c-di-AMP riboswitch aptamer (ydaO/yuaA leader): a 247-nucleotide RNA sequence from Paenibacillus sp. TCA20. Gene Ontology terms of the family: cyclic-di-AMP binding and regulation of gene expression.

[Rfam]
RNA sequence: GAGUCAUUCUCGCUGAAUCUUUUGUAAUUUAACAAAGAACGGGGGAACCGAUAUAGUGGUCUGCUGCUAGUCAGAAGAUGGAAUUAAGAGAGUUGUCUCUCUUGCUCUGACCACUGUAUUUGAUUUCAACACUUGAGUCUUGGGGUGAACGUAAAGGACAGCUGCCAUGAGCAGCCUGGAUCUGAGCGGGGGCGACUCUUACGCCCGAACCCGACAGCUAACUCCGUAAGCGUAUUGAAGAGGCAAA
Numbered sequence: 001g002a003g004u005c006a007u008u009c010u011c012g013c014u015g016a017a018u019c020u021u022u023u024g025u026a027a028u029u030u031a032a033c034a035a036a037g038a039a040c041g042g043g044g045g046a047a048c049c050g051a052u053a054u055a056g057u058g059g060u061c062u063g064c065u066g067c068u069a070g071u072c073a074g075a076a077g078a079u080g081g082a083a084u085u086a087a088g089a090g091a092g093u094u095g096u097c098u099c100u101c102u103u104g105c106u107c108u109g110a111c112c113a114c115u116g117u118a119u120u121u122g123a124u125u126u127c128a129a130c131a132c133u134u135g136a137g138u139c140u141u142g143g144g145g146u147g148a149a150c151g152u153a154a155a156g157g158a159c160a161g162c163u164g165c166c167a168u169g170a171g172c173a174g175c176c177u178g179g180a181u182c183u184g185a186g187c188g189g190g191g192g193c194g195a196c197u198c199u200u201a202c203g204c205c206c207g208a209a210c211c212c213g214a215c216a217g218c219u220a221a222c223u224c225c226g227u228a229a230g231c232g233u234a235u236u237g238a239a240g241a242g243g244c245a246a247a
Stems, first nucleotide, its partner, number of pairs: 011232004018038005039227006049142002143212003151187002190206004